[Rfam]
Overview
SAM riboswitch aptamer (S box leader): a 114-nucleotide RNA from Galbibacter marinus. The match comes from Rfam's covariance-model search (73 bits). The base pairs follow the family's consensus structure, which is taken from published work.
RNA sequence: GUGUUAUCAAGAAAGGUGAAGGGAUAGACCCGUAGAAGCCUUAGCAACCCUUUGUUUUUCCAACGAAAAAUUAGAGAAGGUGCUACAUUCUACCACAUAGUGGAAAGAUAACUA
Dot-bracket structure: ..((((((....(((((...(((.[[[[)))......)))))((((.((((((...................))))..))))))...(]]]]((((...))))..)))))))..
Lineage of the source: Bacteria > Pseudomonadati > Bacteroidota > Flavobacteriaceae > Galbibacter. On this family, see Grundy and Henkin, Mol Microbiol 1998: "The S box regulon: a new global transcription termination control system for methionine and cysteine biosynthesis genes in gram-positive bacteria".